Overview: DUF805 RNA: a 71-nucleotide sequence from Tenacibaculum sp. Bg11-29. The family's consensus secondary structure is taken from published work. Rfam 15.1 lists 281 matches to the family in 219 species. The family is grouped with related families in Rfam's "DUF805 clan". Rfam classes the family as a cis-regulatory element.
[Rfam]
RNA sequence: ACAAAGUAGAGUUCAGAAACUACUAUAAAGAAACGAGGCGAAAUCUGAAAAGCCAAAUGAGUAGGGAAUUU
Numbered sequence: 001a002c003a004a005a006g007u008a009g010a011g012u013u014c015a016g017a018a019a020c021u022a023c024u025a026u027a028a029a030g031a032a033a034c035g036a037g038g039c040g041a042a043a044u045c046u047g048a049a050a051a052g053c054c055a056a057a058u059g060a061g062u063a064g065g066g067a068a069u070u071u
Stems, first nucleotide, its partner, number of pairs: 006023004037054003044065002